Plastid-psbA-4 3UTR RNA: a 60-nucleotide RNA. Its Rfam clan is "Plastid-psbA 3UTR RNA clan".

RNA sequence: AAAGUAAGGGGAGCAAUAACAACCUCUUGAUAAAACAAGAGUUUUGUUAUUGCUCCUUUU
Numbered sequence: 001a002a003a004g005u006a007a008g009g010g011g012a013g014c015a016a017u018a019a020c021a022a023c024c025u026c027u028u029g030a031u032a033a034a035a036c037a038a039g040a041g042u043u044u045u046g047u048u049a050u051u052g053c054u055c056c057u058u059u060u
Base pairs, nucleotide, nucleotide: 006059007058008057010056011055012054013053014052015051016050017049018048022044024041025040026039027038028037029036

For this family Rfam cites "Retrograde signaling in plants: A critical review focusing on the GUN pathway and beyond" (Richter et al., Plant Commun, 2023).
Rfam classes the family as a cis-regulatory element.
Rfam's curators put it in the seed alignment.
Plastid psbA-4 is a non-coding RNA (ncRNA) present in plastids. It was identified in inverted repeat sequences in the 3 prime untranslate region (3UTR) of photosystem II quinone-binding protein (psbA).